Shown here is a 141-nucleotide sequence from Gossypium lobatum, a member of the family "MIR7502 microRNA precursor family". Pairs were carried over by alignment from the consensus structure, which was predicted with RNAalifold. Taxonomically the source falls in Gossypium (Eukaryota, Streptophyta, Tracheophyta, Malvaceae).
[Rfam]
RNA sequence: UGUUAAAAAAAGCAUCCAUUUCUAUUGAUAGAAAUCGGCGUAGCUGUCUAACCAAAUAGUCACACGUGAUGUGUCACUUGUAUCUCAUGUUGACAUAUAGGGACCAAUUUUUAACAAUAAAAAUGGAUGAAAUUUUUAACA
Dot-bracket structure: .((((((((...((((.((((.((((..(((((...........................................................................)))))..)))).)))).))))...)))))))).